[Rfam]
Rfam assigns this 304-nucleotide RNA from Durio zibethinus to the family "Plant signal recognition particle RNA". The family has 63 seed sequences and 4,988 matches in Rfam 15.1. By type it is a non-coding RNA gene.
RNA sequence: GCCGAGCUUAGUAAUGCAAGCUUGUGACCAAAAUUGGGGCAUUAAGUUGGUGGAACAUGGGUUCUGUUCCUAAGUCUGGUCUAACGUGGUUUAAUUCUGGCGUGCCCAUUCCAAGCAAAGAGUUGAGCCACGGAGCUUGAGUAAAAACUCUGGGUCCCGUGGCUCUUAGAGCGGAUGGUACUGCGUGAGGCUGGUUUCACAGAGCAGCGAAAACUUCCCGCUCUUGGCAGUGGAAGGAUAACAGGCCAGAUCCACGUUGCCCAACAUGGCUCAGUGGGCUGACCCUGACUGGACCACCUUCUUU
Dot-bracket structure: (((((((((........))))))....(((....))))))...(((..(((((..(((.((.((.(((.((.((((.((.(.(((((((..(....(((((.((.((.(((((.((.((((((.(((((((((.((((((((....)))).)))).)))))))))(....).(((.(....(.(((....(((......)))....))).)..).))).)))))).))..)))))))....)).)))))).)))))))).)).....)))).)).)).).)).).).).))..)))))..))).